[Rfam]
RNA sequence: CCCUUAUCUUUUAAAAGUUUCAAGUUGGUCCCUUAUCUUUAUUUUAGGUUUCAAGUUAGUCCCUUCCGUCAAUUUUUUAACUAUUUCCGUUAAAUUUGGACACAUGGCAAACUAAUUUAGGCACGUGGCAUACUUGGACAGAUGACACGUGUCCAAUUUUAACGGUAACAGUAAAAAAAUUGAAGAAUGAGACCAACUUGAAACCUAAAAUAAAGAUAAGGGACCAACUUGAAACUUUUAAAAGAUAAAGGA
Numbered sequence: 001c002c003c004u005u006a007u008c009u010u011u012u013a014a015a016a017g018u019u020u021c022a023a024g025u026u027g028g029u030c031c032c033u034u035a036u037c038u039u040u041a042u043u044u045u046a047g048g049u050u051u052c053a054a055g056u057u058a059g060u061c062c063c064u065u066c067c068g069u070c071a072a073u074u075u076u077u078u079a080a081c082u083a084u085u086u087c088c089g090u091u092a093a094a095u096u097u098g099g100a101c102a103c104a105u106g107g108c109a110a111a112c113u114a115a116u117u118u119a120g121g122c123a124c125g126u127g128g129c130a131u132a133c134u135u136g137g138a139c140a141g142a143u144g145a146c147a148c149g150u151g152u153c154c155a156a157u158u159u160u161a162a163c164g165g166u167a168a169c170a171g172u173a174a175a176a177a178a179a180u181u182g183a184a185g186a187a188u189g190a191g192a193c194c195a196a197c198u199u200g201a202a203a204c205c206u207a208a209a210a211u212a213a214a215g216a217u218a219a220g221g222g223a224c225c226a227a228c229u230u231g232a233a234a235c236u237u238u239u240a241a242a243a244g245a246u247a248a249a250g251g252a
Base pairs, nucleotide, nucleotide: 002250004248005247006246007245008244023229024228025227027225028224029223031221032220033219034218035217036216037215038214039213040212041211042210043209045207046206047205
Annotation
MIR2655 microRNA precursor family: a 252-nucleotide sequence from Trifolium subterraneum. The family's consensus secondary structure was predicted with RNAalifold. The family has 25 seed sequences and 892 matches in Rfam 15.1. NCBI's taxonomy places the organism under Eukaryota, Viridiplantae, rosids, Papilionoideae, Trifolium. A search with the family's covariance model found it, with a score of 130 bits.